[Rfam]
RNA: Cyanobacteria heterocyst sRNA
Organism: Haplochromis burtoni
RNA sequence: GGAAUCUAAUAAUGGAUUGGAUUUAUAUAGCGCUUUUCAAGGCACCCAAAGCGCUU
Number, nucleotide and partner (000 for none) at each position: 001g000002g018003a017004a000005u016006c015007u014008a000009a000010u000011a000012a000013u000014g007015g006016a005017u003018u002019g000020g000021a000022u000023u000024u000025a000026u000027a000028u000029a000030g054031c053032g052033c051034u050035u049036u048037u000038c000039a000040a000041g000042g000043c000044a000045c000046c000047c000048a036049a035050a034051g033052c032053g031054c030055u000056u000